[Rfam]
RNA sequence: AGCUUUGCGCAGUGGCAGUAACAUAGCUGAUGAGGUUCAUCCGAGGCGUGUUUAUUGCUAGUUGAAAACUAUACCCAAUACCCCGCCCUGUGGACGUAUAAACCGUUCGCUGUGGCAAUUUCUGAUGGGUUCCCCGGAAC
Numbered sequence: 001a002g003c004u005u006u007g008c009g010c011a012g013u014g015g016c017a018g019u020a021a022c023a024u025a026g027c028u029g030a031u032g033a034g035g036u037u038c039a040u041c042c043g044a045g046g047c048g049u050g051u052u053u054a055u056u057g058c059u060a061g062u063u064g065a066a067a068a069c070u071a072u073a074c075c076c077a078a079u080a081c082c083c084c085g086c087c088c089u090g091u092g093g094a095c096g097u098a099u100a101a102a103c104c105g106u107u108c109g110c111u112g113u114g115g116c117a118a119u120u121u122c123u124g125a126u127g128g129g130u131u132c133c134c135c136g137g138a139a140c
Stems, first nucleotide, its partner, number of pairs: 020052005026047003034042002085116003088112001090110006096103002129140004
A member of the RNA family "U4 spliceosomal RNA" from Saccharomyces uvarum, 140 nucleotides long. Lineage of the source: Eukaryota > Fungi > Ascomycota > Saccharomycotina > Saccharomyces uvarum. U4 small nuclear RNA (U4 snRNA) is a component of the major U2-dependent spliceosome.